[Rfam]
RNA sequence: UGAGCGCACCGUAAGGUGCGCUGACCGGCGGACAGGAGUCAGCAGAGGGCGUAGUAGGACGCAAGGUCUGAAGGCC
Numbered sequence: 001u002g003a004g005c006g007c008a009c010c011g012u013a014a015g016g017u018g019c020g021c022u023g024a025c026c027g028g029c030g031g032a033c034a035g036g037a038g039u040c041a042g043c044a045g046a047g048g049g050c051g052u053a054g055u056a057g058g059a060c061g062c063a064a065g066g067u068c069u070g071a072a073g074g075c076c
Stems, first nucleotide, its partner, number of pairs: 003022008039046002048076003057069004
Annotation
Group II catalytic intron D1-D4-1: a 76-nucleotide sequence from Tenebrionibacter intestinalis. NCBI's taxonomy places the organism under Bacteria, Pseudomonadati, Pseudomonadota, Gammaproteobacteria, Tenebrionibacter. For this family Rfam cites "Control of branch-site choice by a group II intron" (Chu et al., EMBO J, 2001). Rfam describes the family as follows. Group II introns are found in rRNA, tRNA and mRNA of organelles in fungi, plants and protists, and also in mRNA in bacteria. Its family is annotated with Group II intron splicing in the Gene Ontology.